The record is a 195-nucleotide RNA sequence from a Gammaproteobacteria bacterium, which matches "permuted transfer-messenger RNA" in Rfam.

[Rfam]
RNA sequence: GAUGGUAGAAGGUAUGUGGUGCCUGUCAUCGGACGGCGGGGCAGGUCCGCCCGGCUCCACCAUAAUACGCUAUGGGGCCGAUAUAGGAUCGACGAGACAACGGUGUCAUAUACUAGCCAUCCGGUGAGUCUCGCCGUUACCGAGGCAAAACUCAUAAAUGCCAACUUUGAUUAUCCAAGCAAACAGGCUGCAUAA
Numbered sequence: 001g002a003u004g005g006u007a008g009a010a011g012g013u014a015u016g017u018g019g020u021g022c023c024u025g026u027c028a029u030c031g032g033a034c035g036g037c038g039g040g041g042c043a044g045g046u047c048c049g050c051c052c053g054g055c056u057c058c059a060c061c062a063u064a065a066u067a068c069g070c071u072a073u074g075g076g077g078c079c080g081a082u083a084u085a086g087g088a089u090c091g092a093c094g095a096g097a098c099a100a101c102g103g104u105g106u107c108a109u110a111u112a113c114u115a116g117c118c119a120u121c122c123g124g125u126g127a128g129u130c131u132c133g134c135c136g137u138u139a140c141c142g143a144g145g146c147a148a149a150a151c152u153c154a155u156a157a158a159u160g161c162c163a164a165c166u167u168u169g170a171u172u173a174u175c176c177a178a179g180c181a182a183a184c185a186g187g188c189u190g191c192a193u194a195a
Stems, first nucleotide, its partner, number of pairs: 001121005014111004025098003029095003035051005052080007122136004
Dot-bracket structure: (((((........((((.......(((.(((...(((((.......)))))(((((((...............)))))))............)))))).........)))).....)))))((((.......))))...........................................................

Taxonomically the source falls in Gammaproteobacteria (Bacteria, Pseudomonadati, Pseudomonadota). Pairs were carried over by alignment from the consensus structure, which is taken from published work.